This 80-nucleotide sequence from Clostridium sp. CAG:217 belongs to the Rfam family "S10-Clostridia ribosomal protein leader". It is annotated as a cis-regulatory leader. The match comes from Rfam's covariance-model search (42 bits).
[Rfam]
RNA sequence: GAUAUGCGUUGAUGCCGGAGGUUGCGCUCCUACCCAGAGCGGUAAUUUCGGCGGAGUAUGUCCGAUUUCAAACCGGGCGA
Numbered sequence: 001g002a003u004a005u006g007c008g009u010u011g012a013u014g015c016c017g018g019a020g021g022u023u024g025c026g027c028u029c030c031u032a033c034c035c036a037g038a039g040c041g042g043u044a045a046u047u048u049c050g051g052c053g054g055a056g057u058a059u060g061u062c063c064g065a066u067u068u069c070a071a072a073c074c075g076g077g078c079g080a
Stems, first nucleotide, its partner, number of pairs: 014052003018049004025041005061080002066077003
Dot-bracket structure: .............(((.((((...(((((.......)))))....)))))))........((...(((......))).))